[Rfam]
RNA sequence: CCGUGCUAGGUGGGGAGGUAGCGGUGCCCUGCACUUGCAAUCCGCUAUAGCAAGGCUGAAUUCCCGCCCUAGGUGGGAUGGUUUUAAGGUCUGCCUUAAGUAAUUGGUGUUGACACCUUGGUCCUGCACAAUGGAGACCCGUGAACCCUGUCAGGUCCGGAAGGAAGCAGCAGUAAGCGGUAUUCUUCAUGUGUUGCGGGGUAGCCUGGGUCGAGCCAUGACCUUAAGUAACGCUUAAGACCAUCUCAUCGAAGGUGGGUGCACGG
Numbered sequence: 001c002c003g004u005g006c007u008a009g010g011u012g013g014g015g016a017g018g019u020a021g022c023g024g025u026g027c028c029c030u031g032c033a034c035u036u037g038c039a040a041u042c043c044g045c046u047a048u049a050g051c052a053a054g055g056c057u058g059a060a061u062u063c064c065c066g067c068c069c070u071a072g073g074u075g076g077g078a079u080g081g082u083u084u085u086a087a088g089g090u091c092u093g094c095c096u097u098a099a100g101u102a103a104u105u106g107g108u109g110u111u112g113a114c115a116c117c118u119u120g121g122u123c124c125u126g127c128a129c130a131a132u133g134g135a136g137a138c139c140c141g142u143g144a145a146c147c148c149u150g151u152c153a154g155g156u157c158c159g160g161a162a163g164g165a166a167g168c169a170g171c172a173g174u175a176a177g178c179g180g181u182a183u184u185c186u187u188c189a190u191g192u193g194u195u196g197c198g199g200g201g202u203a204g205c206c207u208g209g210g211u212c213g214a215g216c217c218a219u220g221a222c223c224u225u226a227a228g229u230a231a232c233g234c235u236u237a238a239g240a241c242c243a244u245c246u247c248a249u250c251g252a253a254g255g256u257g258g259g260u261g262c263a264c265g266g
Stems, first nucleotide, its partner, number of pairs: 001266006009057003012030004017025001019023001034054005063259006072250005079243010092230002096227005104220001106217003115211004120206003123200006129191002132189005139180004148173004156165003